Source information
A member of the RNA family "azaaromatic riboswitch aptamer (yjdF RNA)" from Paenibacillus polymyxa, 121 nucleotides long. The match comes from Rfam's covariance-model search (81 bits).

[Rfam]
RNA sequence: UUUCUGAGACGAAAAAACACAGUCUGGUUGGUAGUCCAGGCGCAUGGACGACUCUAUAAUUGCAAGAGUGCCGUGUCAGUGACCUUCCCCCCUCGGGAUGUCCAUCGUUUCGAUUUAAAAU
Numbered sequence: 001u002u003u004c005u006g007a008g009a010c011g012a013a014a015a016a017a018c019a020c021a022g023u024c025u026g027g028u029u030g031g032u033a034g035u036c037c038a039g040g041c042g043c044a045u046g047g048a049c050g051a052c053u054c055u056a057u058a059a060u061u062g063c064a065a066g067a068g069u070g071c072c073g074u075g076u077c078a079g080u081g082a083c084c085u086u087c088c089c090c091c092c093u094c095g096g097g098a099u100g101u102c103c104a105u106c107g108u109u110u111c112g113a114u115u116u117a118a119a120a121u
Stems, first nucleotide, its partner, number of pairs: 005112007022041006042076006086098004
Pairs were carried over by alignment from the consensus structure, which is taken from published work.